[Rfam]
RNA sequence: GCUAUGGGCAAUGGCUGAUGAUUCGAACCUGCAGCAGGUUCGAGCCGAACGCAGUGAGGCAACGCAGCCGCUUUGCGGCAAGGCCCGAAGGGUGAGGCGAAGCCGAAUCAUCCUGCACGACCCACCA
Numbered sequence: 001g002c003u004a005u006g007g008g009c010a011a012u013g014g015c016u017g018a019u020g021a022u023u024c025g026a027a028c029c030u031g032c033a034g035c036a037g038g039u040u041c042g043a044g045c046c047g048a049a050c051g052c053a054g055u056g057a058g059g060c061a062a063c064g065c066a067g068c069c070g071c072u073u074u075g076c077g078g079c080a081a082g083g084c085c086c087g088a089a090g091g092g093u094g095a096g097g098c099g100a101a102g103c104c105g106a107a108u109c110a111u112c113c114u115g116c117a118c119g120a121c122c123c124a125c126c127a
Stems, first nucleotide, its partner, number of pairs: 016117002020113001022110001032094002035091001039089004046056002063082001064079002067076002

Rfam assigns this 127-nucleotide RNA from Tenebrionibacter intestinalis to the family "RtT RNA". Lineage of the source: Bacteria > Pseudomonadati > Gammaproteobacteria > Enterobacteriaceae > Tenebrionibacter. Rfam's curators write: This family represents a bacterial cis-regulatory element known as RtT RNA. The exact function of RtT is unknown although it is thought that it may be involved in changing the cellular response in relation to amino acid starvation. The literature on the family includes a 1991 paper in Nucleic Acids Res by Bosl and Kersten, "A novel RNA product of the tyrT operon of Escherichia coli". Rfam classes the family as a cis-regulatory element. Gene Ontology term of the family: cellular response to amino acid starvation.